Description: The record is a 129-nucleotide RNA from Oryza meridionalis, which matches "Small nucleolar RNA snoR111" in Rfam. By type it is an H/ACA-box small nucleolar RNA. Pairs were carried over by alignment from the consensus structure, which was predicted with WAR. Rfam 15.1 lists 533 matches to the family in 223 species.
Nucleotides: 129
Stems, first nucleotide, its partner, number of pairs: 006043003010039002013035002016032003068125002071121003076113004085108006
Number, partner (000 for none) and nucleotide at each position: 001000u002000g003000u004000u005000a006043a007042g008041g009000u010039u011038g012000g013035g014034g015000a016032a017031c018030c019000a020000a021000u022000a023000u024000c025000u026000c027000u028000g029000u030018g031017g032016u033000g034014u035013c036000a037000c038011c039010a040000u041008c042007u043006u044000u045000g046000c047000a048000a049000g050000a051000a052000g053000g054000g055000g056000a057000u058000a059000g060000a061000u062000c063000g064000a065000c066000g067000c068125g069124u070000c071121a072120a073119g074000a075000a076113a077112u078111c079110g080000u081000u082000u083000c084000u085108g086107u087106u088105g089104c090103c091000a092000u093000g094000g095000c096000u097000c098000c099000a100000g101000u102000a103090g104089g105088c106087a107086a108085u109000a110079c111078g112077a113076u114000u115000g116000u117000u118000g119073c120072u121071u122000g123000c124069g125068u126000a127000c128000a129000a
The source organism's lineage runs through Eukaryota, Tracheophyta, Liliopsida, Oryzinae and Oryza.